[Rfam]
RNA sequence: AUUCAUCUUCGAGGUAGGGUGCAAUUCCCAACCGGCAGUAAUUAAAGCCUGCGACGAUAUACGAAUGUAAAUUUCAUACGUAUUUCUUGAUUCAGUGAGAGUCUGAAGCCGACAGUAUAGUCUGGAUGGGAGAAGAUGGAG
Numbered sequence: 001a002u003u004c005a006u007c008u009u010c011g012a013g014g015u016a017g018g019g020u021g022c023a024a025u026u027c028c029c030a031a032c033c034g035g036c037a038g039u040a041a042u043u044a045a046a047g048c049c050u051g052c053g054a055c056g057a058u059a060u061a062c063g064a065a066u067g068u069a070a071a072u073u074u075c076a077u078a079c080g081u082a083u084u085u086c087u088u089g090a091u092u093c094a095g096u097g098a099g100a101g102u103c104u105g106a107a108g109c110c111g112a113c114a115g116u117a118u119a120g121u122c123u124g125g126a127u128g129g130g131a132g133a134a135g136a137u138g139g140a141g
Base pairs, nucleotide, nucleotide: 003139004138005137006136007135008134009133010132017029018028019027031121032120033111034110035052036051037050038049047109048108056086057085091107092106093105094104095103113124114123115122
RNA: FMN riboswitch aptamer (RFN element)